eL15-Euryarchaeota ribosomal protein leader: a 70-nucleotide sequence from Halopiger djelfimassiliensis.
[Rfam]
RNA sequence: CCUGCACGGCUUUGCCGCAGGUCGGGAUGUGAUCCGCGGGGCAUGGCCCCGGUCGGGAUUGAACCAGGAA
Number, nucleotide and partner (000 for none) at each position: 001c021002c020003u019004g018005c017006a000007c000008g000009g000010c000011u000012u000013u000014g000015c000016c000017g005018c004019a003020g002021g001022u000023c000024g065025g064026g000027a000028u000029g000030u000031g060032a059033u058034c057035c056036g000037c000038g000039g000040g000041g000042c000043a000044u000045g000046g000047c000048c000049c000050c000051g000052g000053u000054c000055g000056g035057g034058a033059u032060u031061g000062a000063a000064c025065c024066a000067g000068g000069a000070a000

The family's consensus secondary structure is taken from published work.